[Rfam]
RNA sequence: GAAGCAAGCCAGGCAGCCGCCGGUUUCCGGUCUUUUCCGGAAACGGGAGGAAGGUCCGGACACCACAGGACAGGGUGACGGUUAACGGCCGUCCGUCGAAAACCGAGAGGCAUAAGACGAGGAACAGGGCCACAGAGACGAGCGUAUUAAGUUACGGUGAAACGCGGCAACCUCCACCCGGUGCAAUUCCAAAUAGGCACGCUAUGAUGCGGUCCGCGGAGCGUGCGGGUAGGAAGCUCGAGCGCCGGAGCAAUCCGGCGCCUAGAUGAAUGGCUGUCAUAGUACUAAGGUACCGUAACAGAAUCCGGCCUAUCGGCUUGCUUUUUUC
Numbered sequence: 001g002a003a004g005c006a007a008g009c010c011a012g013g014c015a016g017c018c019g020c021c022g023g024u025u026u027c028c029g030g031u032c033u034u035u036u037c038c039g040g041a042a043a044c045g046g047g048a049g050g051a052a053g054g055u056c057c058g059g060a061c062a063c064c065a066c067a068g069g070a071c072a073g074g075g076u077g078a079c080g081g082u083u084a085a086c087g088g089c090c091g092u093c094c095g096u097c098g099a100a101a102a103c104c105g106a107g108a109g110g111c112a113u114a115a116g117a118c119g120a121g122g123a124a125c126a127g128g129g130c131c132a133c134a135g136a137g138a139c140g141a142g143c144g145u146a147u148u149a150a151g152u153u154a155c156g157g158u159g160a161a162a163c164g165c166g167g168c169a170a171c172c173u174c175c176a177c178c179c180g181g182u183g184c185a186a187u188u189c190c191a192a193a194u195a196g197g198c199a200c201g202c203u204a205u206g207a208u209g210c211g212g213u214c215c216g217c218g219g220a221g222c223g224u225g226c227g228g229g230u231a232g233g234a235a236g237c238u239c240g241a242g243c244g245c246c247g248g249a250g251c252a253a254u255c256c257g258g259c260g261c262c263u264a265g266a267u268g269a270a271u272g273g274c275u276g277u278c279a280u281a282g283u284a285c286u287a288a289g290g291u292a293c294c295g296u297a298a299c300a301g302a303a304u305c306c307g308g309c310c311u312a313u314c315g316g317c318u319u320g321c322u323u324u325u326u327u328c
Stems, first nucleotide, its partner, number of pairs: 001324010011313001012278007020047002023044008052311003056308005061183004068215004073179005078092005093121001094119004122174002127172002129168003143156004187235004197226006208218003242261008
Dot-bracket structure: ((((((((((((((((((.((.((((((((......)))))))).))....[[[.[[[[[((((...[[[[.((((((((((.....)))))(((((..................)))).)((...(((((...........((((......)))).........)))..)))))))))))))...((((......((((((.....(((.]]]])))..)))))).....))))......((((((((....))))))))..........))))))).........................]]]]]]]].).))))))))))....